[Rfam]
RNA sequence: CAACACCGUGCGGGAGAGUCCUCGGGUCCGGUCGGGCCCGGGGCGCCGAAGGGGCAAACUCCCCGGAACCUCUCAGGCGCAAAGGACCGCACGGAUCAG
Numbered sequence: 001c002a003a004c005a006c007c008g009u010g011c012g013g014g015a016g017a018g019u020c021c022u023c024g025g026g027u028c029c030g031g032u033c034g035g036g037c038c039c040g041g042g043g044c045g046c047c048g049a050a051g052g053g054g055c056a057a058a059c060u061c062c063c064c065g066g067a068a069c070c071u072c073u074c075a076g077g078c079g080c081a082a083a084g085g086a087c088c089g090c091a092c093g094g095a096u097c098a099g
Base pairs, nucleotide, nucleotide: 006094007093008092009091010090011089012088013087020043021042022041023040024039025038026037045078046077047076048074049073052072053071054070059065

A member of the RNA family "Glycine riboswitch aptamer" from Knoellia remsis, 99 nucleotides long. Gene Ontology term of the family: glycine biosynthetic process. Taxonomically the source falls in Knoellia (Bacteria, Actinomycetota, Actinomycetes, Intrasporangiaceae).